[Rfam]
Histone 3' UTR stem-loop: a 46-nucleotide sequence from Owenia fusiformis. The base pairs follow the family's consensus structure, which is taken from published work. Lineage of the source: Eukaryota > Metazoa > Bilateria > Lophotrochozoa > Owenia.
RNA sequence: CAAACGGCCCUUUUCAGGGCCAUCUAUUGGUUACAAAAGAGAAAUG
Numbered sequence: 001c002a003a004a005c006g007g008c009c010c011u012u013u014u015c016a017g018g019g020c021c022a023u024c025u026a027u028u029g030g031u032u033a034c035a036a037a038a039g040a041g042a043a044a045u046g
Base pairs, nucleotide, nucleotide: 006021007020008019009018010017011016